[Rfam]
RNA sequence: UCUCGGUCUUAGAUUGAGUAAGAUAAUAACGUAAUUCACUUAGCAAUUACGCAGUAGGUAUUUAUGCUUACCAGCAUAAAUAGAAGGGAAAUUAUACGAUGUUCAGCUUUAUAAGAGUUGACUCAUAUUUAAGGGACCCAACA
Numbered sequence: 001u002c003u004c005g006g007u008c009u010u011a012g013a014u015u016g017a018g019u020a021a022g023a024u025a026a027u028a029a030c031g032u033a034a035u036u037c038a039c040u041u042a043g044c045a046a047u048u049a050c051g052c053a054g055u056a057g058g059u060a061u062u063u064a065u066g067c068u069u070a071c072c073a074g075c076a077u078a079a080a081u082a083g084a085a086g087g088g089a090a091a092u093u094a095u096a097c098g099a100u101g102u103u104c105a106g107c108u109u110u111a112u113a114a115g116a117g118u119u120g121a122c123u124c125a126u127a128u129u130u131a132a133g134g135g136a137c138c139c140a141a142c143a
Base pairs, nucleotide, nucleotide: 006024007023008022009021010020011019031050032049033048034047035046036045059082060081061080062079063078064077065076066075067074068073101122102121103120105119106118107117108116109115
The record is a 143-nucleotide sequence from Photobacterium angustum, which matches "DABA-DC-AT RNA" in Rfam. Lineage of the source: Bacteria > Pseudomonadota > Gammaproteobacteria > Vibrionaceae > Photobacterium angustum.